Description: This 194-nucleotide RNA sequence from Pantoea sp. M_5 belongs to the Rfam family "Yersinia sRNA 251".
RNA sequence: UGUACGCGUGCAGGGUGCGCUGACACAGCGCUGAACGCACACAAUCCUCUUUGCCGAAGCGCACAAUGCCAACCAUCUCGUCCUCUUCAAACCGCGCCAGCGCGUCUGCGAGACCAGAAGGCACCCCAGCGGGCAAGUCGCACUGGGUAAUAUCGCCGUUAACAAUGACCGUGACGUUUUCGCCCAGUCGGGUC
Number, nucleotide and partner (000 for none) at each position: 001u000002g054003u053004a052005c000006g050007c000008g048009u000010g000011c000012a000013g000014g000015g040016u039017g038018c037019g036020c000021u000022g000023a000024c000025a000026c000027a000028g000029c000030g000031c000032u000033g000034a000035a000036c019037g018038c017039a016040c015041a000042c000043a000044a000045u000046c000047c000048u008049c000050u006051u000052u004053g003054c002055c000056g000057a000058a000059g000060c000061g078062c000063a076064c000065a000066a000067u072068g000069c000070c000071a000072a067073c000074c000075a000076u063077c000078u061079c000080g000081u000082c000083c112084u111085c110086u000087u108088c000089a000090a000091a000092c000093c102094g101095c100096g000097c000098c000099a000100g095101c094102g093103c000104g000105u000106c000107u000108g087109c000110g085111a084112g083113a193114c192115c191116a000117g189118a000119a188120g000121g000122c000123a000124c000125c000126c133127c132128a000129g000130c000131g000132g127133g126134c000135a000136a000137g166138u165139c000140g163141c000142a000143c000144u158145g157146g156147g000148u000149a000150a000151u000152a000153u000154c000155g000156c146157c145158g144159u000160u000161a000162a000163c140164a000165a138166u137167g000168a000169c000170c000171g183172u182173g181174a180175c000176g000177u000178u000179u000180u174181c173182g172183c171184c000185c000186a000187g000188u119189c117190g000191g115192g114193u113194c000
Annotation: Pairs were carried over by alignment from the consensus structure, which was predicted with RNAfold.